[Rfam]
RNA sequence: ACGACCUUACUUGAACAAGAUCUGUUCUAUAGGCUCGUACAACUGUAUCCUUGAGUGUAAAGGAGACAGGCAACCACUAUGGUUGAUGACGUAAGAUCUCGAGAUCAAAGCAUGAUUAACAGUUCUGGUCCCUUGGGAUGCCAAGCUGUACAGGAGUGUUCCUAGCAGAUCAACGCUCUGCUGGGGUGGUCUCGAGAUUGUCUGACAGACA
Numbered sequence: 001a002c003g004a005c006c007u008u009a010c011u012u013g014a015a016c017a018a019g020a021u022c023u024g025u026u027c028u029a030u031a032g033g034c035u036c037g038u039a040c041a042a043c044u045g046u047a048u049c050c051u052u053g054a055g056u057g058u059a060a061a062g063g064a065g066a067c068a069g070g071c072a073a074c075c076a077c078u079a080u081g082g083u084u085g086a087u088g089a090c091g092u093a094a095g096a097u098c099u100c101g102a103g104a105u106c107a108a109a110g111c112a113u114g115a116u117u118a119a120c121a122g123u124u125c126u127g128g129u130c131c132c133u134u135g136g137g138a139u140g141c142c143a144a145g146c147u148g149u150a151c152a153g154g155a156g157u158g159u160u161c162c163u164a165g166c167a168g169a170u171c172a173a174c175g176c177u178c179u180g181c182u183g184g185g186g187u188g189g190u191c192u193c194g195a196g197a198u199u200g201u202c203u204g205a206c207a208g209a210c211a
Stems, first nucleotide, its partner, number of pairs: 001038002003035001005033003013027005043069004048064005078209001080207002096198012109160004119149006128139004162184008171175001

The family of this 211-nucleotide RNA from Zingiber officinale is "Plant small nucleolar RNA U3". About the family: Small nucleolar RNAs (snoRNAs) are involved in the processing and modification of rRNA in the nucleolus. There are two main classes of snoRNAs: the box C/D class, and the box H/ACA class. U3 snoRNA is a member of the box C/D class. Indeed, the box C/D element is a subset of the six short sequence elements found in all U3 snoRNAs, namely boxes A, A', B, C, C', and D. The U3 snoRNA secondary structure is characterised by a small 5' domain (with boxes A and A'), and a larger 3' domain (with boxes B, C, C', and D), the two domains being linked by a single-stranded hinge. The match comes from Rfam's covariance-model search (154 bits). Its family is annotated with RNA processing and nucleolus in the Gene Ontology. The organism belongs to Zingiber, within Eukaryota. A reference for the family is Zwieb (1997), "The uRNA database", Nucleic Acids Res.